[Rfam]
RNA sequence: CAACAGGCUAACCCGACGGGGGACAAGCGGAAAUGCCUUGCCGCCUGCCUGUUGAUUUACAUACAUUUCAAGGC
Numbered sequence: 001c002a003a004c005a006g007g008c009u010a011a012c013c014c015g016a017c018g019g020g021g022g023a024c025a026a027g028c029g030g031a032a033a034u035g036c037c038u039u040g041c042c043g044c045c046u047g048c049c050u051g052u053u054g055a056u057u058u059a060c061a062u063a064c065a066u067u068u069c070a071a072g073g074c
Stems, first nucleotide, its partner, number of pairs: 001054008012021003027044004035074006
Overview: This 74-nucleotide RNA sequence belongs to the Rfam family "int-alpA RNA". The family has 167 seed sequences and 577 matches in Rfam 15.1. Acidobacteria (1 example), Planctomycetes (1 example), Proteobacteria.